[Rfam]
RNA sequence: AGCCCCGAACCCGUAGAUCCGAACUUGUGUUAACACUCACCACAAGCUUGUAUCUACAGGUCUGCGUCUG
Dot-bracket structure: .(.(.((..((...((((.(((.((((((...........)))))).))).))))...))..)).).)..
Numbered sequence: 001a002g003c004c005c006c007g008a009a010c011c012c013g014u015a016g017a018u019c020c021g022a023a024c025u026u027g028u029g030u031u032a033a034c035a036c037u038c039a040c041c042a043c044a045a046g047c048u049u050g051u052a053u054c055u056a057c058a059g060g061u062c063u064g065c066g067u068c069u070g
Stems, first nucleotide, its partner, number of pairs: 002068001004066001006064002010060002015055004020050003024046006